Shown here is a 220-nucleotide RNA from Paspalum vaginatum, a member of the family "Plant small nucleolar RNA U3". About the family: Small nucleolar RNAs (snoRNAs) are involved in the processing and modification of rRNA in the nucleolus. Rfam classes the family as a C/D-box small nucleolar RNA. The organism belongs to Paspalum, within Eukaryota. Pairs were carried over by alignment from the consensus structure, which is taken from published work. On this family, see Zwieb, Nucleic Acids Res 1997: "The uRNA database". Its Rfam clan is "U3 clan".
RNA sequence: ACGACCUUACUUGAACAGGAUCUGUUCUAUAGGAUCGUACCGCUUCAUCCUUGACUAAUAAGGAGGCAAUCACUCAAGCCUGGUUGAUGAGGCAUGACCUGUGGGCCAGAGCGUGAUUAACGGCUAGGAUUGGCUGUGAUGGUCUAAUCCACGCUGUAGAGGAUCGUUCCCAGCCGAGCCCUGCUUGGCAUGGGGUGGCCCAUGGGUUGUCUGACAGGCU
Number, nucleotide and partner (000 for none) at each position: 001a038002c037003g035004a000005c033006c032007u031008u000009a000010c000011u000012u000013g027014a026015a025016c024017a023018g022019g000020a000021u000022c018023u017024g016025u015026u014027c013028u000029a000030u000031a007032g006033g005034a000035u003036c000037g002038u001039a000040c000041c000042g000043c000044u068045u000046c066047a000048u064049c063050c062051u061052u060053g059054a000055c000056u000057a000058a000059u053060a052061a051062g050063g049064a048065g000066g046067c000068a044069a000070u000071c000072a000073c000074u000075c000076a000077a000078g219079c218080c217081u216082g215083g000084u000085u000086g000087a000088u000089g000090a000091g000092g000093c000094a000095u000096g000097a207098c206099c205100u204101g203102u202103g201104g200105g199106c198107c197108a196109g000110a168111g167112c166113g165114u000115g000116a000117u000118u000119a000120a157121c156122g155123g154124c153125u000126a000127g150128g149129a148130u147131u146132g144133g143134c142135u141136g000137u000138g000139a000140u000141g135142g134143u133144c132145u000146a131147a130148u129149c128150c127151a000152c000153g124154c123155u122156g121157u120158a000159g000160a000161g000162g000163a000164u000165c113166g112167u111168u110169c000170c193171c192172a191173g189174c188175c187176g186177a185178g184179c000180c000181c000182u000183g000184c178185u177186u176187g175188g174189c173190a000191u172192g171193g170194g000195g000196u108197g107198g106199c105200c104201c103202a102203u101204g100205g099206g098207u097208u000209g000210u000211c000212u000213g000214a000215c082216a081217g080218g079219c078220u000